Source information
Rfam assigns this 52-nucleotide RNA sequence from Mangrovibacter sp. MFB070 to the family "Guanidine-II riboswitch aptamer (mini-ykkC)". It scores 34 bits against the family's covariance model. The base pairs follow the family's consensus structure, which is taken from published work.
RNA sequence: CGUUCAGGACGACCUGUAGCGGUUUUUUCAUUACACAUUGGGGACGGCCCCU
Numbered sequence: 001c002g003u004u005c006a007g008g009a010c011g012a013c014c015u016g017u018a019g020c021g022g023u024u025u026u027u028u029c030a031u032u033a034c035a036c037a038u039u040g041g042g043g044a045c046g047g048c049c050c051c052u
Stems, first nucleotide, its partner, number of pairs: 001021004005016004040051004
Dot-bracket structure: ((((((((....)))).))))..................((((....)))).